[Rfam]
RNA sequence: AUAUUGCGUUAAGGAUAGUAGUGAAAAUCCUUUUUGUGGUUUUUUUCGCUUUCGCGAAAACUGCCUUCAAAAAGAUUGCAACGGAUAGCCUGUUAAAAC
Dot-bracket structure: ...........(((.((...((...((((..(((((.(((......................)))..))))).))))...))...)).)))........
RNA: Flavo-1 RNA